[Rfam]
RNA sequence: AACGCUGUAACAAUCGGGUUACAGUAAGAGCCGAUAGGGGCUAUUCGU
Numbered sequence: 001a002a003c004g005c006u007g008u009a010a011c012a013a014u015c016g017g018g019u020u021a022c023a024g025u026a027a028g029a030g031c032c033g034a035u036a037g038g039g040g041c042u043a044u045u046c047g048u
Base pairs, nucleotide, nucleotide: 004025005024006023007022008021009020010019011018029042030041031040032039